[Rfam]
RNA: Xanthine riboswitch aptamer (NMT1 RNA)
RNA sequence: AUCAAGAGUAGAAGCGUUCAGCACGGUGCUCUGACCUUCCCCCGGUCAGCAGCUUCGCGGGUCAUUGCUCUUGAA
Numbered sequence: 001a002u003c004a005a006g007a008g009u010a011g012a013a014g015c016g017u018u019c020a021g022c023a024c025g026g027u028g029c030u031c032u033g034a035c036c037u038u039c040c041c042c043c044g045g046u047c048a049g050c051a052g053c054u055u056c057g058c059g060g061g062u063c064a065u066u067g068c069u070c071u072u073g074a075a
Stems, first nucleotide, its partner, number of pairs: 005071006015060001019061001021058002025053001027051004